Description: The record is a 394-nucleotide RNA sequence from Opitutus sp. ER46, which matches "Bacterial RNase P class A" in Rfam. NCBI's taxonomy places the organism under Bacteria, Verrucomicrobiota, Opitutales, Opitutaceae, Opitutus.
RNA sequence: CGGUUCGCCGCUCGCACGGAGAGGAAAGUCCGGACACCGCAGGGCAGGAUGCCGCGCAAGCUUCACCGCAAGCGCGGGCGACGCGCGUCAAGGCGCGUCGACGGACAGUGUCACAGAAAACAGACCGCUGCGUCGCAAGGCGCAGUAAGGGUGAAAAGGUGGGGCAAGAGCCCACCGCGCCGACGGUGACGUCGGCGGCACGAAAAACCCCGUCCGGUGCAAGGCAAAAUAGGUGGCUGGGCGGCCCGUCCCAUAGCCACGGGUAUGCCGCACCUCGCCUCUGUCCCGGCGCGCAAGCGUCGGGCGGAAGGCGGGGCAGGAUCGCCGCAAGGCGGUGCUGAGAGAAAUGACGAUCCGUCCCGCGCAAGCGGGAGUGACAAAAUCCGGCUUACCG
Number, nucleotide and partner (000 for none) at each position: 001c394002g392003g355004u000005u353006c352007g351008c000009c349010g000011c021012u020013c019014g000015c000016a000017c000018g000019g013020a012021g011022a000023g000024g000025a000026a390027a389028g388029u000030c387031c386032g385033g384034a383035c219036a218037c217038c216039g000040c000041a000042g247043g246044g245045c244046a000047g215048g214049a213050u212051g211052c077053c076054g075055c074056g073057c000058a000059a000060g000061c000062u000063u000064c000065a000066c000067c000068g000069c000070a000071a000072g000073c056074g055075c054076g053077g052078g102079c100080g099081a098082c097083g096084c095085g094086c093087g000088u000089c000090a000091a000092g000093g086094c085095g084096c083097g082098u081099c080100g079101a000102c078103g210104g209105a000106c000107a000108g208109u207110g000111u203112c202113a000114c000115a000116g000117a000118a000119a000120a000121c000122a000123g000124a000125c150126c149127g146128c145129u144130g143131c142132g141133u140134c139135g000136c000137a000138a000139g134140g133141c132142g131143c130144a129145g128146u127147a000148a000149g126150g125151g000152u000153g000154a000155a000156a000157a000158g176159g175160u174161g173162g172163g171164g000165c000166a000167a000168g000169a000170g000171c163172c162173c161174a160175c159176c158177g199178c197179g196180c195181c194182g193183a192184c191185g190186g000187u000188g000189a000190c185191g184192u183193c182194g181195g180196c179197g178198g000199c177200a000201c000202g112203a111204a000205a000206a000207a109208c108209c104210c103211c051212g050213u049214c048215c047216g038217g037218u036219g035220c000221a000222a000223g269224g268225c267226a266227a000228a000229a000230u000231a000232g000233g260234u259235g258236g257237c256238u000239g251240g250241g249242c248243g000244g045245c044246c043247c042248g242249u241250c240251c239252c000253a000254u000255a000256g237257c236258c235259a234260c233261g000262g000263g000264u000265a000266u226267g225268c224269c223270g000271c000272a000273c000274c000275u000276c000277g000278c000279c000280u000281c000282u000283g000284u000285c000286c000287c000288g000289g000290c000291g000292c000293g000294c000295a000296a000297g000298c000299g000300u000301c000302g000303g000304g000305c000306g000307g000308a000309a000310g000311g000312c000313g000314g000315g000316g000317c000318a000319g000320g000321a000322u000323c000324g000325c000326c000327g000328c000329a000330a000331g000332g000333c000334g000335g000336u000337g000338c000339u000340g000341a000342g000343a000344g000345a000346a000347a000348u000349g009350a000351c007352g006353a005354u000355c003356c000357g000358u000359c000360c000361c000362g000363c000364g000365c000366a000367a000368g000369c000370g000371g000372g000373a000374g000375u000376g000377a000378c000379a000380a000381a000382a000383u034384c033385c032386g031387g030388c028389u027390u026391a000392c002393c000394g001